Small nucleolar RNA SNORA32: a 120-nucleotide RNA from Ictidomys tridecemlineatus. The family's RNA type in Rfam is H/ACA-box small nucleolar RNA.
RNA sequence: UGGUCAUUACCAAGUCUUUUAGAAUGCAGUUUCUCAUUUGCUAUGGACAUGACCAUAAAAAUAUUCCCACUAGGUUUUCUAUCUGCUACCUUGCCAACAAUAAACCUAUUUGGAACAUUU
Numbered sequence: 001u002g003g004u005c006a007u008u009a010c011c012a013a014g015u016c017u018u019u020u021a022g023a024a025u026g027c028a029g030u031u032u033c034u035c036a037u038u039u040g041c042u043a044u045g046g047a048c049a050u051g052a053c054c055a056u057a058a059a060a061a062u063a064u065u066c067c068c069a070c071u072a073g074g075u076u077u078u079c080u081a082u083c084u085g086c087u088a089c090c091u092u093g094c095c096a097a098c099a100a101u102a103a104a105c106c107u108a109u110u111u112g113g114a115a116c117a118u119u120u
Base pairs, nucleotide, nucleotide: 003053004052005051006050007049010046011045012044026041027040028039029038066113067112069110073106074105075104076103084099085098

Rfam describes the family as follows. ACA32 is a member of the H/ACA class of snoRNA that guide the sites of modification of uridines to pseudouridines. The base pairs follow the family's consensus structure, which was predicted with RNAfold. The source organism's lineage runs through Eukaryota, Craniata, Rodentia, Sciuridae and Ictidomys. A search with the family's covariance model found it, with a score of 127 bits.